The family of this 81-nucleotide RNA sequence from Paspalum vaginatum is "Small nucleolar RNA U54". U54 is a C/D box small nucleolar RNA, which acts as a methylation guide for 18S ribosomal RNA in plants. The base pairs follow the family's consensus structure, which was predicted with PFOLD. Its Rfam clan is "U54 clan". A search with the family's covariance model found it, with a score of 82 bits. NCBI's taxonomy places the organism under Eukaryota, Spermatophyta, Petrosaviidae, Poaceae, Paspalum. It is annotated as a C/D-box small nucleolar RNA.
[Rfam]
RNA sequence: AGCUCAAUGAUUUCAACCAGUUAUUCUGGUUAUAUACGCUAUUCUGAUUGCAGUUGUUGACAAAAAAUAUUUCUGAGAGCU
Numbered sequence: 001a002g003c004u005c006a007a008u009g010a011u012u013u014c015a016a017c018c019a020g021u022u023a024u025u026c027u028g029g030u031u032a033u034a035u036a037c038g039c040u041a042u043u044c045u046g047a048u049u050g051c052a053g054u055u056g057u058u059g060a061c062a063a064a065a066a067a068u069a070u071u072u073c074u075g076a077g078a079g080c081u
Stems, first nucleotide, its partner, number of pairs: 001081005